[Rfam]
RNA: c-di-AMP riboswitch aptamer (ydaO/yuaA leader)
Organism: Streptomyces chromofuscus
RNA sequence: UCCGGGCGGACGCCGAAUCCUGCCGCCGCCCGGAUGACCGGUCGACAGGAGUGGAUCGGCAGGAGUGGAGGACCCGAGCACGACGGGUCGCCGGAGCACACGUUCCGAGCGGCCCUUGGGGUGAAGCCGCGACACCGCGGCCGGGCAACUUCGCCAGCCCGAAUCCGACAGGUCAUCCUUCACAGGCGGCUGACGAAGGGUUG
Number, nucleotide and partner (000 for none) at each position: 001u000002c000003c000004g000005g000006g000007c000008g000009g000010a000011c188012g187013c186014c185015g000016a000017a000018u064019c063020c062021u061022g060023c059024c058025g057026c000027c000028g000029c000030c000031c000032g000033g000034a000035u000036g000037a000038c000039c000040g000041g000042u000043c000044g000045a000046c000047a000048g000049g000050a000051g000052u000053g000054g000055a000056u000057c025058g024059g023060c022061a021062g020063g019064a018065g183066u182067g181068g180069a179070g178071g000072a000073c000074c000075c118076g117077a116078g115079c000080a000081c000082g000083a000084c000085g000086g000087g000088u000089c000090g000091c000092c000093g000094g000095a000096g000097c000098a000099c000100a000101c000102g000103u000104u000105c000106c000107g000108a000109g000110c000111g000112g000113c000114c000115c078116u077117u076118g075119g166120g165121g164122u000123g000124a000125a000126g000127c140128c139129g138130c137131g000132a000133c000134a000135c000136c000137g130138c129139g128140g127141c000142c000143g160144g159145g158146c157147a000148a000149c000150u000151u000152c000153g000154c000155c000156a000157g146158c145159c144160c143161g000162a000163a000164u121165c120166c119167g000168a000169c000170a000171g000172g000173u000174c000175a000176u000177c000178c070179u069180u068181c067182a066183c065184a000185g014186g013187c012188g011189g000190c000191u000192g000193a000194c000195g000196a000197a000198g000199g000200g000201u000202u000203g000